Shown here is a 99-nucleotide sequence from Miscanthus lutarioriparius, a member of the family "mir-166 microRNA precursor family". About the family: This family represents the plant microRNA (miRNA) precursor mir-166. Rfam links the family to the GO terms RISC complex and miRNA-mediated post-transcriptional gene silencing. Rfam 15.1 lists 2,599 matches to the family in 229 species. The match comes from Rfam's covariance-model search (70 bits). The organism belongs to Miscanthus, within Eukaryota.

RNA sequence: UUUGUGGGGAAUGUUGGCUGGCUCGAGGCAUCCGCGUCCUGGCCGGCUUGCAGAUCGGACAGAUCGAGAGGCGUCGGACCAGGCUUCAUUCCUCGCAAA
Numbered sequence: 001u002u003u004g005u006g007g008g009g010a011a012u013g014u015u016g017g018c019u020g021g022c023u024c025g026a027g028g029c030a031u032c033c034g035c036g037u038c039c040u041g042g043c044c045g046g047c048u049u050g051c052a053g054a055u056c057g058g059a060c061a062g063a064u065c066g067a068g069a070g071g072c073g074u075c076g077g078a079c080c081a082g083g084c085u086u087c088a089u090u091c092c093u094c095g096c097a098a099a
Stems, first nucleotide, its partner, number of pairs: 001099013016084001018082004024076003
Dot-bracket structure: (((((((((((((..(.((((..(((...............................................)))..)))).)..)))))))))))))